A member of the RNA family "Bacterial antisense RNA HPnc0260" from Pseudoalteromonas luteoviolacea, 145 nucleotides long.
It scores 63 bits against the family's covariance model.
NCBI's taxonomy places the organism under Bacteria, Gammaproteobacteria, Alteromonadales, Pseudoalteromonas, Pseudoalteromonas luteoviolacea.
The family's consensus secondary structure was predicted with CMfinder.
A reference for the family is Sharma et al. (2010), "The primary transcriptome of the major human pathogen Helicobacter pylori", Nature.
[Rfam]
RNA sequence: UGGAAAAAAUGAUUAAAAAAAUGUCAUUGGGCUUAAUUCACAAGCGUUUUUAUUAUGGGAAAUUCAGUGUAGAUGAUAAAUAGAGAAAGUAGGGGUUAUGCAUUUAUGGUACAACCGAGUGGAUUCGAACCACCGACCCCUACCA
Numbered sequence: 001u002g003g004a005a006a007a008a009a010u011g012a013u014u015a016a017a018a019a020a021a022u023g024u025c026a027u028u029g030g031g032c033u034u035a036a037u038u039c040a041c042a043a044g045c046g047u048u049u050u051u052a053u054u055a056u057g058g059g060a061a062a063u064u065c066a067g068u069g070u071a072g073a074u075g076a077u078a079a080a081u082a083g084a085g086a087a088a089g090u091a092g093g094g095g096u097u098a099u100g101c102a103u104u105u106a107u108g109g110u111a112c113a114a115c116c117g118a119g120u121g122g123a124u125u126c127g128a129a130c131c132a133c134c135g136a137c138c139c140c141u142a143c144c145a
Stems, first nucleotide, its partner, number of pairs: 022046003028040004064076002107142003116135002119133004